[Rfam]
RNA: c-di-GMP-I riboswitch aptamer
Organism: Cohnella sp. AR92
Nucleotides: 084
Base pairs, nucleotide, nucleotide: 012037013036017032018031019030022027040078041077042076043075047074048073049070050069051068056064057063
Number, partner (000 for none) and nucleotide at each position: 001000g002000a003000u004000c005000g006000a007000u008000a009000a010000u011000g012037g013036c014000a015000a016000a017032c018031c019030u020000u021000c022027c023000g024000a025000a026000a027022g028000u029000u030019g031018g032017g033000g034000a035000c036013g037012c038000a039000a040078a041077g042076c043075u044000a045000u046000a047074g048073g049070g050069g051068c052000u053000u054000c055000g056064g057063c058000g059000a060000c061000g062000a063057g064056c065000c066000a067000u068051g069050c070049c071000a072000g073048c074047c075043a076042g077041c078040u079000g080000c081000c082000g083000a084000u